[Rfam]
RNA sequence: AAACCGCCCCUUAAGUUUUGCAACUGUAGCAGUUUUGGCCCUCCAAAACCAAAAAAAAUAAAAAAAUAACACGUGACACCUCACUUAAGGUGUCACGUCAGUGUAGACGAAGUCAAAAUUGAUCUUGAGGGUCAAAACUGCCACAAAUGCAAAACUUAUGGAGCGGUUU
Numbered sequence: 001a002a003a004c005c006g007c008c009c010c011u012u013a014a015g016u017u018u019u020g021c022a023a024c025u026g027u028a029g030c031a032g033u034u035u036u037g038g039c040c041c042u043c044c045a046a047a048a049c050c051a052a053a054a055a056a057a058a059u060a061a062a063a064a065a066a067u068a069a070c071a072c073g074u075g076a077c078a079c080c081u082c083a084c085u086u087a088a089g090g091u092g093u094c095a096c097g098u099c100a101g102u103g104u105a106g107a108c109g110a111a112g113u114c115a116a117a118a119u120u121g122a123u124c125u126u127g128a129g130g131g132u133c134a135a136a137a138c139u140g141c142c143a144c145a146a147a148u149g150c151a152a153a154a155c156u157u158a159u160g161g162a163g164c165g166g167u168u169u
Stems, first nucleotide, its partner, number of pairs: 001169002004166004012158011025145003029141015045125001071098002074095007
RNA: MIR2619 microRNA precursor family
Organism: Medicago truncatula